RNA sequence: GGGGGUCUUAGUGGAAGUGACGUGCUGUGAAUACAGGUCCAUAGCACCGCUAUCCACUAUGUCUCGCCCG
Numbered sequence: 001g002g003g004g005g006u007c008u009u010a011g012u013g014g015a016a017g018u019g020a021c022g023u024g025c026u027g028u029g030a031a032u033a034c035a036g037g038u039c040c041a042u043a044g045c046a047c048c049g050c051u052a053u054c055c056a057c058u059a060u061g062u063c064u065c066g067c068c069c070g
Stems, first nucleotide, its partner, number of pairs: 001067001003065003007061001009059007016051004022047008
This 70-nucleotide sequence from Lymphocryptovirus humangamma4 belongs to the Rfam family "mir-BART1 microRNA precursor family". Rfam's curators write: This family represents the mir-BART1 microRNA precursor found in Human herpesvirus 4 (Epstein-Barr virus) and Cercopithicine herpesvirus 15. mir-BART1 is found in all stages of infection but expression is significantly elevated in the lytic stage. The family's consensus secondary structure was predicted with RNAalifold. The organism belongs to Lymphocryptovirus humangamma4, within Viruses. A reference for the family is Pfeffer et al. (2004), "Identification of Virus-Encoded MicroRNAs", Science. Rfam links the family to the GO terms RISC complex and miRNA-mediated post-transcriptional gene silencing.